RNA sequence: UCCGUUACGCCGUUUGUAACGGUAACCCCCGCGGUUGCGGGAGGAUAAUCAGUGAGAAGGAAGAUAUCGAUG
Numbered sequence: 001u002c003c004g005u006u007a008c009g010c011c012g013u014u015u016g017u018a019a020c021g022g023u024a025a026c027c028c029c030c031g032c033g034g035u036u037g038c039g040g041g042a043g044g045a046u047a048a049u050c051a052g053u054g055a056g057a058a059g060g061a062a063g064a065u066a067u068c069g070a071u072g
Base pairs, nucleotide, nucleotide: 002022003021004020005019006018007017008016009015026043028041029040030039031038
This 72-nucleotide RNA from Paramixta manurensis belongs to the Rfam family "osmY RNA".
A search with the family's covariance model found it, with a score of 70 bits.
NCBI's taxonomy places the organism under Bacteria, Pseudomonadati, Gammaproteobacteria, Enterobacterales, Paramixta.